This 128-nucleotide sequence from Clostridium novyi belongs to the Rfam family "Ribosomal protein L20 leader". On this family, see Zengel and Lindahl, Prog Nucleic Acid Res Mol Biol 1994: "Diverse mechanisms for regulating ribosomal protein synthesis in Escherichia coli". The sequence is in the family's curated seed alignment. This family is a putative r-protein leader autoregulatory structure found in B. subtilis and other low-GC Gram-positive bacteria. It is located in the 5' untranslated regions of mRNAs encoding initiation factor 3 followed by ribosomal proteins L35 and L20 (infC-rpmI-rplT).

[Rfam]
RNA sequence: UUCGUUAAGAAGAAACUAAGCUGUUUCUCACCUUACAGCACAGCUAGUAAGGUUAUACAUUCAUUUCAAGUUAUUUUAUUUUAUGUGAAUUGUAUAGGACGGCUUAGAAGCCGUCCUUUUUAUUUUGU
Dot-bracket structure: ..........((((((......)))))).(((..((.((...))..))..)))............................................(((((((....))))))).............